[Rfam]
RNA sequence: GCGGGCGUGAUGGAAUGGUAGACAUACCAGACUUAAAAUCUGAGGGGCGUAGGCCCGUGCGGGUUCGAGUCCCGCCGCCCGUA
Numbered sequence: 001g002c003g004g005g006c007g008u009g010a011u012g013g014a015a016u017g018g019u020a021g022a023c024a025u026a027c028c029a030g031a032c033u034u035a036a037a038a039u040c041u042g043a044g045g046g047g048c049g050u051a052g053g054c055c056c057g058u059g060c061g062g063g064u065u066c067g068a069g070u071c072c073c074g075c076c077g078c079c080c081g082u083a
Stems, first nucleotide, its partner, number of pairs: 001082007010025003028042004059075005
A member of the RNA family "tRNA" from Meridianimarinicoccus roseus, 83 nucleotides long. Lineage of the source: Bacteria > Pseudomonadati > Alphaproteobacteria > Rhodobacterales > Meridianimarinicoccus. Rfam classes the family as a transfer RNA. Its family is annotated with triplet codon-amino acid adaptor activity in the Gene Ontology.